RNA sequence: CAUUUCAAGCGGCUUUCAACGACUAUAUCAACCAAAUCAAGCUAGAUACGUUGAUAUGUUGUUUGAAUGCCCCUUGAGAUU
Number, nucleotide and partner (000 for none) at each position: 001c000002a000003u000004u078005u077006c076007a075008a074009g073010c000011g071012g070013c069014u000015u067016u066017c065018a063019a062020c061021g060022a059023c058024u000025a057026u056027a055028u054029c053030a052031a051032c050033c000034a047035a000036a000037u000038c000039a000040a000041g000042c000043u000044a000045g000046a000047u034048a000049c000050g032051u031052u030053g029054a028055u027056a026057u025058g023059u022060u021061g020062u019063u018064u000065g017066a016067a015068u000069g013070c012071c011072c000073c009074u008075u007076g006077a005078g004079a000080u000081u000
The record is an 81-nucleotide sequence from Caenorhabditis briggsae, which matches "mir-90 microRNA precursor family" in Rfam. Rfam's curators put it in the seed alignment. The source organism's lineage runs through Eukaryota, Opisthokonta, Protostomia, Rhabditida and Caenorhabditis. The base pairs follow the family's consensus structure, which was predicted with RNAalifold. The literature on the family includes a 2009 paper in Genome Res by de Wit et al., "Repertoire and evolution of miRNA genes in four divergent nematode species".